Shown here is a 109-nucleotide RNA from Slackia isoflavoniconvertens, a member of the family "Glycine riboswitch aptamer".
[Rfam]
RNA sequence: UUAGGGGCCUCUGGAGAAUCCCAAUCAUUUGGGUGCCGAAGGGGCAAGCGCCGCGAAACCCAUGAUCGCGCGGCGUGAAACUCUCAGGCAAAAGGACAGAGCAGCUUCG
Numbered sequence: 001u002u003a004g005g006g007g008c009c010u011c012u013g014g015a016g017a018a019u020c021c022c023a024a025u026c027a028u029u030u031g032g033g034u035g036c037c038g039a040a041g042g043g044g045c046a047a048g049c050g051c052c053g054c055g056a057a058a059c060c061c062a063u064g065a066u067c068g069c070g071c072g073g074c075g076u077g078a079a080a081c082u083c084u085c086a087g088g089c090a091a092a093a094g095g096a097c098a099g100a101g102c103a104g105c106u107u108c109g
Stems, first nucleotide, its partner, number of pairs: 009101005020033004035089003038085002042083003048076008
The organism belongs to Slackia, within Bacteria. The family is grouped with related families in Rfam's "Glycine riboswitch clan".